[Rfam]
RNA: Purine riboswitch aptamer
Organism: Heyndrickxia ginsengihumi
RNA sequence: UACAAUUUAACAAGCAUCACUCAUAUAAUCGCGGGGAUAAGGCCCGCAAGUUUCUACCAAGCUACCGUAAAUAGCUUGACUAUGGGUGAGCAGUGAGAAGUU
Numbered sequence: 001u002a003c004a005a006u007u008u009a010a011c012a013a014g015c016a017u018c019a020c021u022c023a024u025a026u027a028a029u030c031g032c033g034g035g036g037a038u039a040a041g042g043c044c045c046g047c048a049a050g051u052u053u054c055u056a057c058c059a060a061g062c063u064a065c066c067g068u069a070a071a072u073a074g075c076u077u078g079a080c081u082a083u084g085g086g087u088g089a090g091c092a093g094u095g096a097g098a099a100g101u102u
Base pairs, nucleotide, nucleotide: 018088019087020086021085022084023083024082025081029049031047032046033045034044035043058078059077060076061075062074063073064072
Dot-bracket structure: .................((((((((...(.(((((.......))))).)........(((((((.......)))))))..))))))))..............